Source information:
Shown here is a 93-nucleotide sequence from Lentibacillus halodurans, a member of the family "Guanidine-I riboswitch aptamer". The pairing is the family consensus, mapped onto this sequence. A search with the family's covariance model found it, with a score of 80 bits.

[Rfam]
RNA sequence: UAUUAGGUUUUCUAGGGUUCCGUAGCAGAUGCUGGACUGGUCCGAGAGAAAACGCACGGAAUGUGUGCACGGCGGGACAAAAGCCCGGGAGGA
Numbered sequence: 001u002a003u004u005a006g007g008u009u010u011u012c013u014a015g016g017g018u019u020c021c022g023u024a025g026c027a028g029a030u031g032c033u034g035g036a037c038u039g040g041u042c043c044g045a046g047a048g049a050a051a052a053c054g055c056a057c058g059g060a061a062u063g064u065g066u067g068c069a070c071g072g073c074g075g076g077a078c079a080a081a082a083g084c085c086c087g088g089g090a091g092g093a
Stems, first nucleotide, its partner, number of pairs: 007053006015043002020040002022037001023034004054066005068088001070091001074086003